About this RNA
Shown here is a 176-nucleotide RNA from Enterococcus ratti, a member of the family "Enterococcus sRNA B11". The source organism's lineage runs through Bacteria, Bacillati, Bacillota, Enterococcaceae and Enterococcus. Pairs were carried over by alignment from the consensus structure, which was predicted with RNAfold. Rfam classes the family as a small RNA. On this family, see Shioya et al., PLoS One 2011: "Genome-wide identification of small RNAs in the opportunistic pathogen Enterococcus faecalis V583". It scores 80 bits against the family's covariance model.
[Rfam]
RNA sequence: GGCAACUUGCCCCCAAAGGGGGUGUGCUUCAUUGGAAAAAAUAGUAUCGUUGGUCAUUGCACCUAUUUUUGUAGGUAUCGUUAUCAAACUUUUUUCUCACUGGUUAGAUGAGAAAGACAAUGACUAAAAGCAAGUUGCUUCUAGCCCACUCAUUCGUAGUCGCAACGAAUGAAAAA
Numbered sequence: 001g002g003c004a005a006c007u008u009g010c011c012c013c014c015a016a017a018g019g020g021g022g023u024g025u026g027c028u029u030c031a032u033u034g035g036a037a038a039a040a041a042u043a044g045u046a047u048c049g050u051u052g053g054u055c056a057u058u059g060c061a062c063c064u065a066u067u068u069u070u071g072u073a074g075g076u077a078u079c080g081u082u083a084u085c086a087a088a089c090u091u092u093u094u095u096c097u098c099a100c101u102g103g104u105u106a107g108a109u110g111a112g113a114a115a116g117a118c119a120a121u122g123a124c125u126a127a128a129a130g131c132a133a134g135u136u137g138c139u140u141c142u143a144g145c146c147c148a149c150u151c152a153u154u155c156g157u158a159g160u161c162g163c164a165a166c167g168a169a170u171g172a173a174a175a176a
Stems, first nucleotide, its partner, number of pairs: 001139008010021004023036001025034001051126009062075005077092001080089003093107002097103002151171005